[Rfam]
RNA sequence: GAAGUAAGAUAAGUAAUCGCGGCUGCAAUUGCCGAAAGGCAGCAGACGAGGAAAGUCCGGGCUUCAUAGGGCAGGAUGCCGGAUAACGUCCGGUGGAGGUGACUCCAAGGAAAGUGCAACAGAAAUAAACCGCUGAGGGCGCAAGCUCUCAGUAAGGGUGGAAAGGUGGUGUAAGAGACCACCGCUUUGCUGGUAACAGCAAGGGUCCCUGUAAACCCCAUCCGAAGCAAGACCGAAUGGAAACGUAUGUGGCCCGCUAGUUUCAGGUUGGUCGCUUGAGGCGAUUGGCGACAGUCGUCCUAGAUAGAUGAUUACUCUCGACAUAACCCGGCUCAUCGUCUUGCUUCUUUU
Numbered sequence: 001g002a003a004g005u006a007a008g009a010u011a012a013g014u015a016a017u018c019g020c021g022g023c024u025g026c027a028a029u030u031g032c033c034g035a036a037a038g039g040c041a042g043c044a045g046a047c048g049a050g051g052a053a054a055g056u057c058c059g060g061g062c063u064u065c066a067u068a069g070g071g072c073a074g075g076a077u078g079c080c081g082g083a084u085a086a087c088g089u090c091c092g093g094u095g096g097a098g099g100u101g102a103c104u105c106c107a108a109g110g111a112a113a114g115u116g117c118a119a120c121a122g123a124a125a126u127a128a129a130c131c132g133c134u135g136a137g138g139g140c141g142c143a144a145g146c147u148c149u150c151a152g153u154a155a156g157g158g159u160g161g162a163a164a165g166g167u168g169g170u171g172u173a174a175g176a177g178a179c180c181a182c183c184g185c186u187u188u189g190c191u192g193g194u195a196a197c198a199g200c201a202a203g204g205g206u207c208c209c210u211g212u213a214a215a216c217c218c219c220a221u222c223c224g225a226a227g228c229a230a231g232a233c234c235g236a237a238u239g240g241a242a243a244c245g246u247a248u249g250u251g252g253c254c255c256g257c258u259a260g261u262u263u264c265a266g267g268u269u270g271g272u273c274g275c276u277u278g279a280g281g282c283g284a285u286u287g288g289c290g291a292c293a294g295u296c297g298u299c300c301u302a303g304a305u306a307g308a309u310g311a312u313u314a315c316u317c318u319c320g321a322c323a324u325a326a327c328c329c330g331g332c333u334c335a336u337c338g339u340c341u342u343g344c345u346u347c348u349u350u351u
Stems, first nucleotide, its partner, number of pairs: 001347010011336001012316007020048002023045004054333002057331005062227004069255004074223005079093005094108001095106004109218002114216002116212003130157002132153009165183006184207001185204008231273004240264005249257002280299008